[Rfam]
RNA sequence: UGACCAGUCUGGCUUCUGCCUAUAUUCCAGAACUUAUCUGAUCCUGGGUAUAACCAAAGGUUGACUAUAUG
Numbered sequence: 001u002g003a004c005c006a007g008u009c010u011g012g013c014u015u016c017u018g019c020c021u022a023u024a025u026u027c028c029a030g031a032a033c034u035u036a037u038c039u040g041a042u043c044c045u046g047g048g049u050a051u052a053a054c055c056a057a058a059g060g061u062u063g064a065c066u067a068u069a070u071g
Stems, first nucleotide, its partner, number of pairs: 007065003011061001013059002017056002021052004028040004
The family of this 71-nucleotide sequence from Mus musculus is "mir-344 microRNA precursor family". The literature on the family includes a 2010 paper in BMC Genomics by Linsen et al., "Small RNA expression and strain specificity in the rat". Gene Ontology terms of the family: RISC complex and miRNA-mediated post-transcriptional gene silencing.